Notes:
DUF805b RNA: a 37-nucleotide sequence from Polaribacter sp. SA4-12. A search with the family's covariance model found it, with a score of 37 bits. The organism belongs to Polaribacter, within Bacteria. It is annotated as a cis-regulatory element. The family's consensus secondary structure is taken from published work.
[Rfam]
RNA sequence: AAGGUGAAACCGAAAAACCUUUAAAAUAGAGUAGGAU
Numbered sequence: 001a002a003g004g005u006g007a008a009a010c011c012g013a014a015a016a017a018c019c020u021u022u023a024a025a026a027u028a029g030a031g032u033a034g035g036a037u
Stems, first nucleotide, its partner, number of pairs: 002020004010035002